[Rfam]
RNA: gntR-DTE RNA
Organism: Streptomyces luteoverticillatus
RNA sequence: CGGGUGGUGGCCGUGGCGGCCACUUCGUGGCAGGUGAACCUGUCCUGUCCCGCGUGUCAGCUCUGGAGACCGGUCCUGGGGAUCAUCCCUUCAUCACUGGAGGUCAACCCCGGGGCCGCCACCUGGUACGCGCCGCCCUGCUGGCGUCAGAGCAGUGACGAUGACGCGCCCG
Numbered sequence: 001c002g003g004g005u006g007g008u009g010g011c012c013g014u015g016g017c018g019g020c021c022a023c024u025u026c027g028u029g030g031c032a033g034g035u036g037a038a039c040c041u042g043u044c045c046u047g048u049c050c051c052g053c054g055u056g057u058c059a060g061c062u063c064u065g066g067a068g069a070c071c072g073g074u075c076c077u078g079g080g081g082a083u084c085a086u087c088c089c090u091u092c093a094u095c096a097c098u099g100g101a102g103g104u105c106a107a108c109c110c111c112g113g114g115g116c117c118g119c120c121a122c123c124u125g126g127u128a129c130g131c132g133c134c135g136c137c138c139u140g141c142u143g144g145c146g147u148c149a150g151a152g153c154a155g156u157g158a159c160g161a162u163g164a165c166g167c168g169c170c171c172g
Base pairs, nucleotide, nucleotide: 015137016136017135018134019133020132052131053130054129055128056127057126058125059124060123064121065120066119071118072117073116074115075114076113077112078111079110080109081108